[Rfam]
This 68-nucleotide RNA from Baltivirus phi19tres belongs to the Rfam family "Pistol ribozyme".
Nucleotides: 068
Base pairs, nucleotide, nucleotide: 002015003014004013006039007038008037009036010035011034025068026067027066028065033041044061045060046059047058048057049056
Number, partner (000 for none) and nucleotide at each position: 001000a002015g003014c004013c005000g006039u007038u008037g009036c010035a011034g012000c013004g014003g015002c016000a017000u018000a019000a020000a021000a022000u023000a024000g025068g026067u027066u028065a029000u030000u031000a032000g033041g034011c035010u036009g037008c038007a039006a040000g041033c042000g043000u044061u045060c046059g047058c048057c049056c050000u051000u052000a053000a054000u055000u056049g057048g058047g059046c060045g061044g062000u063000g064000u065028u066027a067026a068025c
The organism belongs to Baltivirus phi19tres, within Viruses.